[Rfam]
RNA sequence: GCUGCCGACCGCGACUGGCGAAGGUGGGAUCGACCACCGGGGAGCGGUCGAUCGACCUGCUGGUGCGUCGUCCGCCUGGGCGCCAAGG
Numbered sequence: 001g002c003u004g005c006c007g008a009c010c011g012c013g014a015c016u017g018g019c020g021a022a023g024g025u026g027g028g029a030u031c032g033a034c035c036a037c038c039g040g041g042g043a044g045c046g047g048u049c050g051a052u053c054g055a056c057c058u059g060c061u062g063g064u065g066c067g068u069c070g071u072c073c074g075c076c077u078g079g080g081c082g083c084c085a086a087g088g
Base pairs, nucleotide, nucleotide: 004052006050007049008048009047010046011045012044015041016040017076018075019074020073024037025036026035027034065083066082067081068080069079

This 88-nucleotide sequence from Paraoerskovia marina belongs to the Rfam family "ZMP/ZTP riboswitch aptamer (pfl RNA motif)". The base pairs follow the family's consensus structure, which is taken from published work. Taxonomically the source falls in Paraoerskovia (Bacteria, Actinomycetota, Actinomycetes, Micrococcales).